[Rfam]
RNA sequence: CGCCGACGUGGACGGGGAAUGACCGGGGGCACGUCGGGGAUAUCCGCAACCACGGGGACCAUCUGAGAUAGCGGACGCGCUGGCGACUUCAGCGGCGCGCGGUGGGUAGAGGCUGAAGCGG
Numbered sequence: 001c002g003c004c005g006a007c008g009u010g011g012a013c014g015g016g017g018a019a020u021g022a023c024c025g026g027g028g029g030c031a032c033g034u035c036g037g038g039g040a041u042a043u044c045c046g047c048a049a050c051c052a053c054g055g056g057g058a059c060c061a062u063c064u065g066a067g068a069u070a071g072c073g074g075a076c077g078c079g080c081u082g083g084c085g086a087c088u089u090c091a092g093c094g095g096c097g098c099g100c101g102g103u104g105g106g107u108a109g110a111g112g113c114u115g116a117a118g119c120g121g
Stems, first nucleotide, its partner, number of pairs: 001039001003037008026053001028051002044074004049069001062101001076099006088117006